[Rfam]
RNA sequence: AAAAGGUUAUACGAAAGUAGUGAAUAAAGUAUAUAUAUAUACUAGUAUAUAUAUACUUUAUUCACUACUUUCGUAUAACCUUUU
Dot-bracket structure: .(((((.((.(((((((((((((.(((((..((((..((......))....))))))))).))))))))))))).)).))))).
Rfam assigns this 84-nucleotide sequence from Mytilus edulis to the family "mir-2763 microRNA precursor family". A search with the family's covariance model found it, with a score of 51 bits. The base pairs follow the family's consensus structure, which was predicted with RNAalifold. Rfam links the family to the GO terms RISC complex and miRNA-mediated post-transcriptional gene silencing.